Rfam assigns this 110-nucleotide RNA from Syntrophotalea carbinolica to the family "SAM riboswitch aptamer (S box leader)".
[Rfam]
RNA sequence: UCUUUAUCGAGAGUGGUGGAGGGAUAGGCCCUGUGAAACCACAGCAACCGAUUCGCCGGCGCGAAUGUCAGGUGCUAAUUCCUACCCCUUCAACAGGGGAGAGAUGAGGA
Numbered sequence: 001u002c003u004u005u006a007u008c009g010a011g012a013g014u015g016g017u018g019g020a021g022g023g024a025u026a027g028g029c030c031c032u033g034u035g036a037a038a039c040c041a042c043a044g045c046a047a048c049c050g051a052u053u054c055g056c057c058g059g060c061g062c063g064a065a066u067g068u069c070a071g072g073u074g075c076u077a078a079u080u081c082c083u084a085c086c087c088c089u090u091c092a093a094c095a096g097g098g099g100a101g102a103g104a105u106g107a108g109g110a
Stems, first nucleotide, its partner, number of pairs: 001110008013042005021031003025084004043076004048072002050069003080102001085099004
NCBI's taxonomy places the organism under Bacteria, Pseudomonadati, Syntrophotaleaceae, Syntrophotalea, Syntrophotalea carbinolica.
The family's consensus secondary structure is taken from published work.
Rfam links the family to the GO term regulation of gene expression.